[Rfam]
RNA: mir-965 microRNA precursor family
Organism: Danaus chrysippus
RNA sequence: UAACUAACGGGAGAAGUUAUAUACGCUGUAUGUAUCUAUAAACCAUAAGCGUAAUAGCUUUUCCCCUUGGUUU
Numbered sequence: 001u002a003a004c005u006a007a008c009g010g011g012a013g014a015a016g017u018u019a020u021a022u023a024c025g026c027u028g029u030a031u032g033u034a035u036c037u038a039u040a041a042a043c044c045a046u047a048a049g050c051g052u053a054a055u056a057g058c059u060u061u062u063c064c065c066c067u068u069g070g071u072u073u
Stems, first nucleotide, its partner, number of pairs: 003071005009065003013061002017057004021052001026049002029047004